Overview:
This 217-nucleotide sequence from Pseudolabrys taiwanensis belongs to the Rfam family "Bradyrhizobiaceae sRNA BjrC174". A search with the family's covariance model found it, with a score of 70 bits. Lineage of the source: Bacteria > Pseudomonadati > Pseudomonadota > Xanthobacteraceae > Pseudolabrys. By type it is a small RNA.
RNA sequence: AUCACGAAGUCGUUAAAGCGCCCCACAAUAACGCCUCAUUCCGGUCAACCGCCGGACACGCUGCAUUGGGAUAACAGCAUCGUUGCCUCAUGGCCCGGUCCGGUACGAGCGCCGGAUUCCUCAGCCCCCCAGCCCCCCGGGGUUCGGCCGACCGGGCCAGUUGAGUUCAGCGUACGGUUCAAUCCCCAAGACUCGGGCCGGCAUGACCGGCCCUAAU
Number, nucleotide and partner (000 for none) at each position: 001a000002u000003c000004a000005c000006g000007a000008a000009g000010u000011c000012g000013u000014u000015a000016a000017a000018g000019c000020g000021c000022c000023c000024c000025a000026c000027a000028a000029u000030a000031a000032c000033g000034c000035c000036u177037c176038a000039u051040u000041c000042c000043g000044g000045u000046c000047a000048a000049c000050c000051g039052c000053c000054g000055g000056a000057c000058a000059c000060g000061c000062u000063g000064c000065a000066u000067u000068g000069g000070g000071a000072u000073a000074a000075c000076a000077g000078c000079a000080u000081c000082g171083u170084u169085g168086c000087c000088u164089c163090a162091u000092g158093g157094c156095c155096c154097g153098g152099u151100c150101c000102g148103g000104u000105a000106c000107g145108a144109g143110c142111g000112c140113c139114g138115g137116a000117u000118u000119c000120c000121u000122c000123a000124g133125c132126c000127c000128c000129c000130c000131a000132g125133c124134c000135c000136c000137c115138c114139g113140g112141g000142g110143u109144u108145c107146g000147g000148c102149c000150g100151a099152c098153c097154g096155g095156g094157c093158c092159a000160g000161u000162u090163g089164a088165g000166u000167u000168c085169a084170g083171c082172g000173u000174a000175c000176g037177g036178u000179u000180c000181a000182a000183u000184c000185c000186c000187c000188a000189a000190g000191a000192c000193u000194c000195g213196g212197g211198c210199c209200g208201g207202c000203a000204u000205g000206a000207c201208c200209g199210g198211c197212c196213c195214u000215a000216a000217u000